mir-250 microRNA precursor family: an 81-nucleotide RNA from Caenorhabditis elegans.
The base pairs follow the family's consensus structure, which was predicted with RNAalifold.
RNA sequence: UCGGACCACGCCUUCAGUUGCCUCGUGAUCCGCCAAACACAAUAAAUGGACGAAUCACAGUCAACUGUUGGCAUGGUGCUC
Dot-bracket structure: ..(.((((..((..((((((.((.(((((.(((((...........))).)).))))))).))))))..))..)))).)..
Description:
The sequence is in the family's curated seed alignment. The source organism's lineage runs through Eukaryota, Ecdysozoa, Rhabditidae, Peloderinae and Caenorhabditis. Gene Ontology terms of the family: RISC complex and miRNA-mediated post-transcriptional gene silencing. Rfam 15.1 lists 22 matches to the family in 21 species.